This 35-nucleotide RNA sequence from Marivirga aurantiaca belongs to the Rfam family "DUF805b RNA". A search with the family's covariance model found it, with a score of 39 bits. The family's RNA type in Rfam is cis-regulatory element. The organism belongs to Marivirga, within Bacteria. The family's consensus secondary structure is taken from published work.

RNA sequence: AUGGCGGAUGCUGAAAAGCCAAAAAAGAGUAAGCC
Numbered sequence: 001a002u003g004g005c006g007g008a009u010g011c012u013g014a015a016a017a018g019c020c021a022a023a024a025a026a027g028a029g030u031a032a033g034c035c
Stems, first nucleotide, its partner, number of pairs: 002021004010034003